[Rfam]
RNA sequence: GCCCAGAUGACCGGCAGUAGUCUGGGGUGCAGGCUUCAAACCUGUAGCUGUCUAGUGACAGAGGGCUUCAUUUCCACCUUUUGGGC
Numbered sequence: 001g002c003c004c005a006g007a008u009g010a011c012c013g014g015c016a017g018u019a020g021u022c023u024g025g026g027g028u029g030c031a032g033g034c035u036u037c038a039a040a041c042c043u044g045u046a047g048c049u050g051u052c053u054a055g056u057g058a059c060a061g062a063g064g065g066c067u068u069c070a071u072u073u074c075c076a077c078c079u080u081u082u083g084g085g086c
Stems, first nucleotide, its partner, number of pairs: 001086007009078001012027001015024003028046006048061005063077001065075001
Shown here is an 86-nucleotide sequence from Haliaeetus albicilla, a member of the family "Selenocysteine transfer RNA". The organism belongs to Haliaeetus, within Eukaryota. Gene Ontology term of the family: triplet codon-amino acid adaptor activity. The match comes from Rfam's covariance-model search (51 bits).